Nucleotides: 082
Stems, first nucleotide, its partner, number of pairs: 015074007022055006030044003
Number, partner (000 for none) and nucleotide at each position: 001000g002000u003000c004000a005000a006000u007000u008000u009000u010000c011000u012000u013000u014000a015074g016073u017072u018071c019070c020069u021068u022055g023054c024053u025052u026051c027050c028000u029000c030044u031043g032042g033000a034000c035000g036000a037000c038000u039000g040000a041000g042032c043031c044030a045000u046000u047000u048000g049000u050027g051026g052025a053024a054023g055022c056000u057000g058000a059000a060000u061000a062000a063000u064000c065000c066000g067000u068021a069020a070019g071018g072017a073016g074015c075000a076000a077000c078000c079000c080000a081000u082000g

A member of the RNA family "RpsF leader" from Vibrio parahaemolyticus, 82 nucleotides long. By type it is a cis-regulatory leader. Lineage of the source: Bacteria > Pseudomonadati > Vibrionales > Vibrio > Vibrio parahaemolyticus. Conserved and widely distributed to many bacterial species RNA structure. It precedes operon containing rpsF, which encodes ribosomal protein S6. The motif also precedes operon containing rpsR, which encodes ribosomal protein S18. The RNA was shown to interact with S6:S18 protein dimer in vitro. It was shown that RpsF leader regulates gene expression in response to the S6:S18 complex, contributing to the regulation of ribosomal protein levels.